The family of this 179-nucleotide sequence from Jacana jacana is "Small Cajal body specific RNA 16".
scaRNAs are a specific class of small nuclear RNAs which localise to the Cajal bodies and guide the modification of RNA polymerase II transcribed spliceosomal RNAs U1, U2, U4, U5 and U12. ACA47 belongs to the H/ACA box class of guide RNAs as it has the predicted hairpin-hinge-hairpin-tail structure, the conserved H/ACA-box motifs and is found associated with GAR1. ACA47 is predicted to guide the pseudouridylation of residue U5 of the U1 spliceosomal snRNA.
Rfam links the family to the GO terms nucleolus and RNA processing.
On this family, see Darzacq et al., EMBO J 2002: "Cajal body-specific small nuclear RNAs: a novel class of 2'-O-methylation and pseudouridylation guide RNAs".
Rfam classes the family as a small Cajal body RNA.
Pairs were carried over by alignment from the consensus structure, which was predicted with RNAfold.

RNA sequence: UGGGGCUGGGGAAGGGCUGCUGGACGGUGGGGCCAGUGGGCCCGGCCUCGUACCAGCCAGCCUCACCCGCGCCCGAGAUCAACUCCCCCUGGGCUCCGUGCCGGGGUUCACCAUGUGCAGUAACAGGUGUGAGCAUCCAUGCAGCGUUUUGAUGGUCAUGUAUGAUACUGCAUACAACA
Number, nucleotide and partner (000 for none) at each position: 001u000002g000003g074004g073005g072006c071007u000008g068009g067010g066011g000012a000013a000014g000015g062016g061017c060018u059019g057020c056021u055022g054023g000024a000025c000026g047027g046028u045029g000030g043031g000032g041033c040034c039035a000036g000037u000038g000039g034040g033041c032042c000043c030044g000045g028046c027047c026048u000049c000050g000051u000052a000053c000054c022055a021056g020057c019058c000059a018060g017061c016062c015063u000064c000065a000066c010067c009068c008069g000070c000071g006072c005073c004074c003075g000076a000077g000078a000079u000080c000081a000082a000083c000084u000085c000086c106087c105088c104089c000090u000091g000092g102093g101094c100095u000096c000097c000098g000099u000100g094101c093102c092103g000104g088105g087106g086107u000108u000109c000110a000111c000112c000113a000114u174115g173116u172117g171118c170119a169120g168121u167122a166123a000124c164125a163126g000127g000128u000129g000130u158131g157132a156133g000134c154135a153136u152137c151138c000139a000140u000141g148142c000143a000144g000145c000146g000147u000148u141149u000150u000151g137152a136153u135154g134155g000156u132157c131158a130159u000160g000161u000162a000163u125164g124165a000166u122167a121168c120169u119170g118171c117172a116173u115174a114175c000176a000177a000178c000179a000